[Rfam]
RNA: Small nucleolar RNA SNORA30/SNORA37 family
RNA sequence: CUAGCACAUUCACAGGUCCUCCCCUGUGCUGUGGGGCCAGGAUUUGGUAGCUGGUGCUGAGAGAAAACUACUGAUUGCAUCCUUGCCCUGGUCCUGUACCAGUGGCAGCUGUCACUCAGUGGGACAGAG
Dot-bracket structure: ..(((((.....(((.((((.((((.......))))..)))).))).......))))).........((.((((.((.((..(((((((((.......)))).)))))..)))).))))..))......